The family of this 161-nucleotide RNA sequence from Chloroherpeton thalassium is "Molybdenum/Tungsten riboswitch aptamer (Moco RNA motif)". Taxonomically the source falls in Chloroherpeton thalassium (Bacteria, Pseudomonadati, Chlorobiales, Chloroherpetonaceae).
[Rfam]
RNA sequence: AAAUAAAUACUUCUCCGAUUUUGGAAUUUCUACGGACGCAAUCGCGGCUAUGAGUUCCAAAACGAAGGAUGGCACGCCAUCCCGCCUGAUUUUAGGCGAAGGGUUUACUUGAAGAAAUUCGUAAGCCUCCCGGCUUGGAAAGGAGAAUCGCCACACAGAAA
Numbered sequence: 001a002a003a004u005a006a007a008u009a010c011u012u013c014u015c016c017g018a019u020u021u022u023g024g025a026a027u028u029u030c031u032a033c034g035g036a037c038g039c040a041a042u043c044g045c046g047g048c049u050a051u052g053a054g055u056u057c058c059a060a061a062a063c064g065a066a067g068g069a070u071g072g073c074a075c076g077c078c079a080u081c082c083c084g085c086c087u088g089a090u091u092u093u094a095g096g097c098g099a100a101g102g103g104u105u106u107a108c109u110u111g112a113a114g115a116a117a118u119u120c121g122u123a124a125g126c127c128u129c130c131c132g133g134c135u136u137g138g139a140a141a142g143g144a145g146a147a148u149c150g151c152c153a154c155a156c157a158g159a160a161a
Base pairs, nucleotide, nucleotide: 011147012146013145014144015143016142019062020061021060022059023058024057025056026055028054029053030052034049035048037046038045039044064097101128102127103126104125105124106123107122108121111120112119113118129138130137